[Rfam]
RNA sequence: AUUGUUUUUGUCAAAAUAAAUCGUUUUUUAAAAAAUAAUGUUUAUUUUUGAAUUUAUGUUUCAAAACAUUAACAUCGCAUUUAAUUUUAAAAAUAAUUAUAAAAUUAUAAUUUGCGUCGUAAAUUUCACGCAAUCAAUUCAAAAAUAACCGAAAAAUUUAUAUUUUUUCGACAUUUCAACGUUCGAUAAAAUGCGAAAUUAUUUUAAUAAAUAAUUUAAAAUACGAACUAUUUUCGUUUAUCAAAAUGAAAUUUUAAAAAUUAAUUUAUGACAAUUAAACGUUUAUAACGACGUUGUUUUUUGAUUUUUCGAUGUC
Numbered sequence: 001a002u003u004g005u006u007u008u009u010g011u012c013a014a015a016a017u018a019a020a021u022c023g024u025u026u027u028u029u030a031a032a033a034a035a036u037a038a039u040g041u042u043u044a045u046u047u048u049u050g051a052a053u054u055u056a057u058g059u060u061u062c063a064a065a066a067c068a069u070u071a072a073c074a075u076c077g078c079a080u081u082u083a084a085u086u087u088u089a090a091a092a093a094u095a096a097u098u099a100u101a102a103a104a105u106u107a108u109a110a111u112u113u114g115c116g117u118c119g120u121a122a123a124u125u126u127c128a129c130g131c132a133a134u135c136a137a138u139u140c141a142a143a144a145a146u147a148a149c150c151g152a153a154a155a156a157u158u159u160a161u162a163u164u165u166u167u168u169c170g171a172c173a174u175u176u177c178a179a180c181g182u183u184c185g186a187u188a189a190a191a192u193g194c195g196a197a198a199u200u201a202u203u204u205u206a207a208u209a210a211a212u213a214a215u216u217u218a219a220a221a222u223a224c225g226a227a228c229u230a231u232u233u234u235c236g237u238u239u240a241u242c243a244a245a246a247u248g249a250a251a252u253u254u255u256a257a258a259a260a261u262u263a264a265u266u267u268a269u270g271a272c273a274a275u276u277a278a279a280c281g282u283u284u285a286u287a288a289c290g291a292c293g294u295u296g297u298u299u300u301u302u303g304a305u306u307u308u309u310c311g312a313u314g315u316c
Stems, first nucleotide, its partner, number of pairs: 001305004008296001010294002